[Rfam]
Nucleotides: 229
Stems, first nucleotide, its partner, number of pairs: 054080003091185006109175001111173001212227004
Number, partner (000 for none) and nucleotide at each position: 001000a002000u003000g004000a005000u006000a007000u008000u009000g010000u011000u012000u013000u014000g015000g016000c017000a018000g019000g020000a021000a022000u023000c024000c025000a026000u027000c028000c029000a030000u031000g032000g033000g034000u035000c036000u037000u038000g039000a040000a041000a042000g043000g044000c045000a046000u047000c048000a049000c050000c051000u052000u053000u054080g055079g056078a057000g058000u059000g060000a061000g062000g063000g064000a065000a066000u067000a068000u069000a070000c071000a072000c073000c074000c075000u076000c077000c078056u079055c080054c081000a082000a083000a084000u085000u086000c087000c088000u089000g090000a091185g092184u093183u094182u095181g096180c097000c098000u099000u100000c101000g102000c103000u104000u105000a106000g107000c108000c109175u110000g111173u112000c113000u114000c115000c116000u117000c118000c119000c120000c121000u122000a123000a124000g125000c126000u127000c128000c129000u130000c131000u132000a133000c134000c135000a136000a137000g138000u139000g140000a141000u142000c143000c144000a145000a146000a147000u148000u149000g150000c151000u152000u153000u154000g155000u156000a157000g158000c159000a160000g161000a162000g163000c164000u165000u166000u167000u168000g169000g170000c171000a172000a173111a174000a175109g176000c177000a178000u179000c180096g181095c182094a183093a184092a185091c186000c187000g188000g189000c190000a191000a192000g193000u194000c195000a196000c197000a198000a199000a200000u201000c202000g203000g204000c205000a206000a207000u208000g209000g210000a211000a212227g213226a214225c215224c216000u217000g218000g219000a220000u221000c222000c223000u224215g225214g226213u227212c228000u229000a